Shown here is a 148-nucleotide RNA sequence from Actinidia chinensis, a member of the family "Small nucleolar RNA snoR2/U65".
Pairs were carried over by alignment from the consensus structure, which was predicted with WAR.
[Rfam]
RNA sequence: GGUCCAAUGCCACGUCGCCGGGAGCGAUAUAGCGAUGACCGGUGAUGCUAUGAUUGAACCAAAAUGGAUCUCAUGCUUCGCAUUUUGAUAGGAAUUUGUGGAUCGACUCAUCCCGUUCGUUCACGGAGCCGUUACUGCGAUUACAUUU
Numbered sequence: 001g002g003u004c005c006a007a008u009g010c011c012a013c014g015u016c017g018c019c020g021g022g023a024g025c026g027a028u029a030u031a032g033c034g035a036u037g038a039c040c041g042g043u044g045a046u047g048c049u050a051u052g053a054u055u056g057a058a059c060c061a062a063a064a065u066g067g068a069u070c071u072c073a074u075g076c077u078u079c080g081c082a083u084u085u086u087g088a089u090a091g092g093a094a095u096u097u098g099u100g101g102a103u104c105g106a107c108u109c110a111u112c113c114c115g116u117u118c119g120u121u122c123a124c125g126g127a128g129c130c131g132u133u134a135c136u137g138c139g140a141u142u143a144c145a146u147u148u
Stems, first nucleotide, its partner, number of pairs: 002059002005056004009051001013047006020040002024033002078140005091130002096126003100122003104119002

Gene Ontology terms of the family: RNA processing and nucleolus. Its Rfam clan is "SNORA65 clan". Rfam 15.1 lists 908 matches to the family in 230 species.